[Rfam]
RNA sequence: CUGGUCGUACUGAAUGGAAGACUAGUGAUUUUGUUGUGUGUCAUUGAUGCAUGAACAACAAGUCCCAGUCUACCUCUCGGUACCAGCAA
Dot-bracket structure: .((.(.((.((((..((.(((((.(.(((((.(((((.................)))))))))).)))))).))..)))).)).).)).